[Rfam]
RNA sequence: GCGGUACCGGUUCACGCUCUGUUGGCUCCUGGGGGGACGACCCCCCAGACCCCCCCGGAAAACCCGGGCAGGCGACCCGGCGACC
Dot-bracket structure: ..(((.((((....((((...((((......................................))))...))))..))))..)))
RNA: L31-Actinobacteria ribosomal protein leader